[Rfam]
RNA sequence: CUACCCGCCAUGGGAGAACGCCGCAUCCCGCGGCUGCCGUAGGAGCAAAUCCUCCCGGGAAACUCUCAGGCCCACGCACCGUGGCGGUAGG
Number, nucleotide and partner (000 for none) at each position: 001c000002u000003a000004c000005c000006c086007g085008c084009c083010a082011u081012g080013g079014g000015a000016g000017a000018a000019c000020g034021c033022c032023g031024c000025a000026u000027c000028c000029c000030g000031c023032g022033g021034c020035u000036g071037c070038c069039g067040u000041a000042g000043g065044a064045g063046c000047a000048a000049a000050u058051c057052c000053u000054c000055c000056c000057g051058g050059g000060a000061a000062a000063c045064u044065c043066u000067c039068a000069g038070g037071c036072c000073c000074a000075c000076g000077c000078a000079c013080c012081g011082u010083g009084g008085c007086g006087g000088u000089a000090g000091g000
The family of this 91-nucleotide RNA sequence from Ruania alkalisoli is "Glycine riboswitch aptamer". A search with the family's covariance model found it, with a score of 57 bits. The base pairs follow the family's consensus structure. Rfam links the family to the GO term glycine biosynthetic process. NCBI's taxonomy places the organism under Bacteria, Actinomycetes, Micrococcales, Ruaniaceae, Ruania.